[Rfam]
RNA sequence: UGAGACAAGUAGAAGCACCCGCUUCUCACCUGAUCGACGCAAGCAUGCAGUCGGCUGGUCUUGAAUUUUUCAAUAGAAAUUAUUGGAGACGUGUGGGUGCAUCUGUGUACCGACACUUUUUAUUUACG
Numbered sequence: 001u002g003a004g005a006c007a008a009g010u011a012g013a014a015g016c017a018c019c020c021g022c023u024u025c026u027c028a029c030c031u032g033a034u035c036g037a038c039g040c041a042a043g044c045a046u047g048c049a050g051u052c053g054g055c056u057g058g059u060c061u062u063g064a065a066u067u068u069u070u071c072a073a074u075a076g077a078a079a080u081u082a083u084u085g086g087a088g089a090c091g092u093g094u095g096g097g098u099g100c101a102u103c104u105g106u107g108u109a110c111c112g113a114c115a116c117u118u119u120u121u122a123u124u125u126a127c128g
Stems, first nucleotide, its partner, number of pairs: 011026006028059003036052003039048002092115003096111006
RNA: Ribosomal protein L20 leader
Organism: Lentibacillus halodurans